RNA sequence: UAUUUAAUCGGCCAAACUUGGUGUGAAUCAGGGACGGAAAGCCACAGGCCUUGUUGUUUAACAAGGUGGCUGGGUUGCACAA
Numbered sequence: 001u002a003u004u005u006a007a008u009c010g011g012c013c014a015a016a017c018u019u020g021g022u023g024u025g026a027a028u029c030a031g032g033g034a035c036g037g038a039a040a041g042c043c044a045c046a047g048g049c050c051u052u053g054u055u056g057u058u059u060a061a062c063a064a065g066g067u068g069g070c071u072g073g074g075u076u077g078c079a080c081a082a
Stems, first nucleotide, its partner, number of pairs: 012037002017032006040076004045072003048067007
Dot-bracket structure: ...........((...((((((....))))))...))..((((.((((((((((......)))))))..)))))))......
Rfam assigns this 82-nucleotide sequence from Methylophaga thalassica to the family "c-di-GMP-I riboswitch aptamer". The family's consensus secondary structure is taken from published work.